Annotation: A member of the RNA family "IhtA sRNA" from Chlamydia caviae, 103 nucleotides long. The literature on the family includes a 2012 paper in PLoS One by Tattersall et al., "Translation inhibition of the developmental cycle protein HctA by the small RNA IhtA is conserved across Chlamydia". Rfam describes the family as follows. A histone like protein HctA and HctB play role in controlling the differentiation between the two cell types. The expression of HctA is tightly regulated and repressed by small non-coding RNA, IhtA until the late RB to EB re-differentiation. The IhtA RNA is conserved across Chlamydia species. The family's consensus secondary structure was predicted with RNAfold. Gene Ontology term of the family: translation repressor activity. The family's RNA type in Rfam is small RNA.

RNA sequence: AAGAUGAUAUUCUACGCCAUGGAAUAGCUUCUGACUCUGUUGUACUUCAGGGGGAAAGCCAAGAAAACAUCGUCGGCCGUAUGAUUGUUGUUUUCUUGGCUUU
Numbered sequence: 001a002a003g004a005u006g007a008u009a010u011u012c013u014a015c016g017c018c019a020u021g022g023a024a025u026a027g028c029u030u031c032u033g034a035c036u037c038u039g040u041u042g043u044a045c046u047u048c049a050g051g052g053g054g055a056a057a058g059c060c061a062a063g064a065a066a067a068c069a070u071c072g073u074c075g076g077c078c079g080u081a082u083g084a085u086u087g088u089u090g091u092u093u094u095c096u097u098g099g100c101u102u103u
Base pairs, nucleotide, nucleotide: 002032003031006028008026009025010024011023012022013021035052036051037050038049039048055103056102057101058100059099060098061097062096063095064094066093067092